[Rfam]
RNA sequence: GCUGUUCGUUGAUGAGGCUCAGAGUGAGCGCUGGGUACAGCGCCCGAAUCGGACAGUGUAGAACCAUUCUCUACUGCCUUCCUUCUGAGAACAGC
Numbered sequence: 001g002c003u004g005u006u007c008g009u010u011g012a013u014g015a016g017g018c019u020c021a022g023a024g025u026g027a028g029c030g031c032u033g034g035g036u037a038c039a040g041c042g043c044c045c046g047a048a049u050c051g052g053a054c055a056g057u058g059u060a061g062a063a064c065c066a067u068u069c070u071c072u073a074c075u076g077c078c079u080u081c082c083u084u085c086u087g088a089g090a091a092c093a094g095c
Base pairs, nucleotide, nucleotide: 001095002094003093004092005091
A member of the RNA family "Small nucleolar RNA U83B" from Pan troglodytes, 95 nucleotides long. The family's RNA type in Rfam is C/D-box small nucleolar RNA. For this family Rfam cites "The intron-containing L3 ribosomal protein gene (RPL3): sequence analysis and identification of U43 and of two novel intronic small nucleolar RNAs" (Duga et al., Biochim Biophys Acta, 2000). Pairs were carried over by alignment from the consensus structure. Its family is annotated with RNA processing and nucleolus in the Gene Ontology. Rfam describes the family as follows. U83B belongs to the C/D family of snoRNAs. U83B like U83A has no documented RNA target and they share the same host gene with the C/D box snoRNA U43 (RPL3). N.B. U83A/B/C have no sequence similarity with the U83 snoRNA that was cloned by Jady and Kiss (2000). Rfam's curators put it in the seed alignment. NCBI's taxonomy places the organism under Eukaryota, Chordata, Gnathostomata, Boreoeutheria, Pan. Rfam 15.1 lists 966 matches to the family in 652 species.